[Rfam]
Background
A member of the RNA family "tRNA" from Dethiosulfovibrio peptidovorans, 73 nucleotides long. Pairs were carried over by alignment from the consensus structure, which is taken from published work. Lineage of the source: Bacteria > Synergistota > Synergistales > Dethiosulfovibrio > Dethiosulfovibrio peptidovorans. Rfam classes the family as a transfer RNA.

RNA sequence: GGUCCCUUCGUCUAGUGGUCUAGGACGCCGGGUUCUCAGCCCGGUAACAGGGGUUCGAACCCCCUAGGGACUG
Numbered sequence: 001g002g003u004c005c006c007u008u009c010g011u012c013u014a015g016u017g018g019u020c021u022a023g024g025a026c027g028c029c030g031g032g033u034u035c036u037c038a039g040c041c042c043g044g045u046a047a048c049a050g051g052g053g054u055u056c057g058a059a060c061c062c063c064c065u066a067g068g069g070a071c072u073g
Stems, first nucleotide, its partner, number of pairs: 001072007010026004028044005049065005